[Rfam]
RNA sequence: GCCCUCCUGCUAAGGUGCAUCUUGUGUAGUUAGUGAAUUAGUCUAGUAUCUACUGCGCUGGAUGCUCCUUUUGGCAGGAGUAG
Numbered sequence: 001g002c003c004c005u006c007c008u009g010c011u012a013a014g015g016u017g018c019a020u021c022u023u024g025u026g027u028a029g030u031u032a033g034u035g036a037a038u039u040a041g042u043c044u045a046g047u048a049u050c051u052a053c054u055g056c057g058c059u060g061g062a063u064g065c066u067c068c069u070u071u072u073g074g075c076a077g078g079a080g081u082a083g
Stems, first nucleotide, its partner, number of pairs: 004080004009075003013069003017065006024058004029054001031052003
About this RNA:
Shown here is an 83-nucleotide RNA sequence from Triplophysa tibetana, a member of the family "mir-17 microRNA precursor family". NCBI's taxonomy places the organism under Eukaryota, Teleostomi, Otophysi, Cypriniphysae, Triplophysa. Rfam links the family to the GO terms miRNA-mediated post-transcriptional gene silencing and RISC complex. The family's consensus secondary structure was predicted with RNAalifold. A search with the family's covariance model found it, with a score of 54 bits. The family has 234 seed sequences and 4,687 matches in Rfam 15.1. For this family Rfam cites "Structural Features Within Precursor microRNA-20a Regulate Dicer-TRBP Processing" (Liu et al., J Mol Biol, 2025). About the family: This family represents the microRNA (miRNA) precursor mir-17, family, which includes mir-20, mir-91, and mir-103. miRNAs are transcribed as ~70nt precursors (modelled here) and subsequently processed by the Dicer enzyme to give a ~22nt product. In this case the mature sequence comes from the 3' arm of the precursor. The extents of the hairpin precursors are not generally known and are estimated based on hairpin prediction.